[Rfam]
The family of this 125-nucleotide sequence from Pantoea agglomerans is "Phenylalanine leader peptide".
Taxonomically the source falls in Pantoea (Bacteria, Pseudomonadati, Enterobacterales, Erwiniaceae).
Rfam 15.1 lists 379 matches to the family in 290 species.
By type it is a cis-regulatory leader.
A reference for the family is Zurawski et al. (1978), "Nucleotide sequence of the leader region of the phenylalanine operon of Escherichia coli", Proc Natl Acad Sci U S A.

RNA sequence: AAUGAAACCUGAUCUGUUUUUCUUCGCUUUCUUUUUUACCUUCCCCUGAACGGGAGGCCAUUCGUCGUGUGAAAAUGAAAGCGAAGACGAACACCGAAGCCUCCCAACCGGGAGGCUUUUUUUUG
Numbered sequence: 001a002a003u004g005a006a007a008c009c010u011g012a013u014c015u016g017u018u019u020u021u022c023u024u025c026g027c028u029u030u031c032u033u034u035u036u037u038a039c040c041u042u043c044c045c046c047u048g049a050a051c052g053g054g055a056g057g058c059c060a061u062u063c064g065u066c067g068u069g070u071g072a073a074a075a076u077g078a079a080a081g082c083g084a085a086g087a088c089g090a091a092c093a094c095c096g097a098a099g100c101c102u103c104c105c106a107a108c109c110g111g112g113a114g115g116c117u118u119u120u121u122u123u124u125g
Stems, first nucleotide, its partner, number of pairs: 016092004021087011033075002036072004042055004056066003096119010